[Rfam]
RNA: Archaeal large subunit ribosomal RNA, nucleotides 2749 to 3019
Organism: Candidatus Acidianus copahuensis
RNA sequence: GGGUGCUUGAGGGAAAGGUACCCCAAGUACGAGAGGAACGGGGUAUCGGGGCCUCUAGUCUACCGGUUGUCCGGUCGGGCACUGCCGGGCAGCCACGCCCUAAGGGAUAAUCGCUGAAAGCAUCUAAGCGAGAAUCCUCUCCCGAAACGAGGCACCCUUGCGGGGAAACCCGCGAGAGCCCUCCUCUAUAACAGGGGGUUGAUGGGGUGGGGAUGUGCUCUCCGAGGGCGAAAGUCCGAGGAGUUUAGUCCGCCACUCCCAAUAGGGCGAG
Numbered sequence: 001g002g003g004u005g006c007u008u009g010a011g012g013g014a015a016a017g018g019u020a021c022c023c024c025a026a027g028u029a030c031g032a033g034a035g036g037a038a039c040g041g042g043g044u045a046u047c048g049g050g051g052c053c054u055c056u057a058g059u060c061u062a063c064c065g066g067u068u069g070u071c072c073g074g075u076c077g078g079g080c081a082c083u084g085c086c087g088g089g090c091a092g093c094c095a096c097g098c099c100c101u102a103a104g105g106g107a108u109a110a111u112c113g114c115u116g117a118a119a120g121c122a123u124c125u126a127a128g129c130g131a132g133a134a135u136c137c138u139c140u141c142c143c144g145a146a147a148c149g150a151g152g153c154a155c156c157c158u159u160g161c162g163g164g165g166a167a168a169c170c171c172g173c174g175a176g177a178g179c180c181c182u183c184c185u186c187u188a189u190a191a192c193a194g195g196g197g198g199u200u201g202a203u204g205g206g207g208u209g210g211g212g213a214u215g216u217g218c219u220c221u222c223c224g225a226g227g228g229c230g231a232a233a234g235u236c237c238g239a240g241g242a243g244u245u246u247a248g249u250c251c252g253c254c255a256c257u258c259c260c261a262a263u264a265g266g267g268c269g270a271g
Stems, first nucleotide, its partner, number of pairs: 001157008011143004017047008048101005056095001058093001063088005068081005104138003111131005178268004182198005203261003206257005211251003220243004226237003